[Rfam]
RNA sequence: ACAAAAUAUUUCGGACGUACUCAUAUAAAGGCGAGGAUAUGGCUCGCAAGUUUCUACCAGACUACCGUAAAUGGUCUGACUAUGAGUAUUGCAUACAUUUGU
Numbered sequence: 001a002c003a004a005a006a007u008a009u010u011u012c013g014g015a016c017g018u019a020c021u022c023a024u025a026u027a028a029a030g031g032c033g034a035g036g037a038u039a040u041g042g043c044u045c046g047c048a049a050g051u052u053u054c055u056a057c058c059a060g061a062c063u064a065c066c067g068u069a070a071a072u073g074g075u076c077u078g079a080c081u082a083u084g085a086g087u088a089u090u091g092c093a094u095a096c097a098u099u100u101g102u
Stems, first nucleotide, its partner, number of pairs: 018088008031047005058078007

Rfam assigns this 102-nucleotide RNA from Pontibacillus chungwhensis to the family "Purine riboswitch aptamer". NCBI's taxonomy places the organism under Bacteria, Bacillota, Bacillaceae, Pontibacillus, Pontibacillus chungwhensis. A search with the family's covariance model found it, with a score of 87 bits. Gene Ontology term of the family: purine nucleobase biosynthetic process.